[Rfam]
RNA sequence: UCUGAUCAAGGAUGAUUCCUUUUUUUGAUGGUGACUGCUGGAUGACACUUGCGGAUAUGGGACUGAGAUCUGAA
Numbered sequence: 001u002c003u004g005a006u007c008a009a010g011g012a013u014g015a016u017u018c019c020u021u022u023u024u025u026u027g028a029u030g031g032u033g034a035c036u037g038c039u040g041g042a043u044g045a046c047a048c049u050u051g052c053g054g055a056u057a058u059g060g061g062a063c064u065g066a067g068a069u070c071u072g073a074a
Base pairs, nucleotide, nucleotide: 001073002072004070005069

This 74-nucleotide RNA sequence from Astyanax mexicanus belongs to the Rfam family "Small nucleolar RNA SNORD99". A reference for the family is Galardi et al. (2002), "Purified box C/D snoRNPs are able to reproduce site-specific 2'-O-methylation of target RNA in vitro", Mol Cell Biol. Its family is annotated with nucleolus and RNA processing in the Gene Ontology. By type it is a C/D-box small nucleolar RNA. Clan: SNORD58 clan.